[Rfam]
RNA: small nucleolar RNA snoR31
RNA sequence: GCCAUGUGCUUUGUUAAUUCCUAGCGGGCAAGAUUUUUUUCAAAAAAUGAAAAACAUCAUAAUCAGUCUAGGAAAUAAAAAAUUUAAAAAAAAAAAAAUUUACAUAAACAUUGUUAUUUUUAACAU
Numbered sequence: 001g002c003c004a005u006g007u008g009c010u011u012u013g014u015u016a017a018u019u020c021c022u023a024g025c026g027g028g029c030a031a032g033a034u035u036u037u038u039u040u041c042a043a044a045a046a047a048u049g050a051a052a053a054a055c056a057u058c059a060u061a062a063u064c065a066g067u068c069u070a071g072g073a074a075a076u077a078a079a080a081a082a083u084u085u086a087a088a089a090a091a092a093a094a095a096a097a098a099u100u101u102a103c104a105u106a107a108a109c110a111u112u113g114u115u116a117u118u119u120u121u122a123a124c125a126u
Stems, first nucleotide, its partner, number of pairs: 020072005025066001026064002032058003036054006086121005093115002096112001099108003